[Rfam]
RNA sequence: UCCUGUGUGGUUGAUGAUUACAGUGCUUCUGAGACAAAUUGAUUGCUCAGUCUCAAAGUAAACGCUCUGACGCACAGAGG
Numbered sequence: 001u002c003c004u005g006u007g008u009g010g011u012u013g014a015u016g017a018u019u020a021c022a023g024u025g026c027u028u029c030u031g032a033g034a035c036a037a038a039u040u041g042a043u044u045g046c047u048c049a050g051u052c053u054c055a056a057a058g059u060a061a062a063c064g065c066u067c068u069g070a071c072g073c074a075c076a077g078a079g080g
Stems, first nucleotide, its partner, number of pairs: 005075005010021002013018001029050005
The family of this 80-nucleotide sequence from Jaculus jaculus is "Small nucleolar RNA U105B". The organism belongs to Jaculus, within Eukaryota. The base pairs follow the family's consensus structure, which was predicted with WAR. The family's RNA type in Rfam is C/D-box small nucleolar RNA. On this family, see Yang et al., Nucleic Acids Res 2006: "snoSeeker: an advanced computational package for screening of guide and orphan snoRNA genes in the human genome". It scores 76 bits against the family's covariance model.